[Rfam]
RNA: int-alpA RNA
RNA sequence: GUCGAGCCUAGGGCGGCCACCCGAAAACCGGAUACCUUCACCGGCUGGCUCGACGCUUCAUGAAGG
Numbered sequence: 001g002u003c004g005a006g007c008c009u010a011g012g013g014c015g016g017c018c019a020c021c022c023g024a025a026a027a028c029c030g031g032a033u034a035c036c037u038u039c040a041c042c043g044g045c046u047g048g049c050u051c052g053a054c055g056c057u058u059c060a061u062g063a064a065g066g
Stems, first nucleotide, its partner, number of pairs: 001054008011022003028044004035066005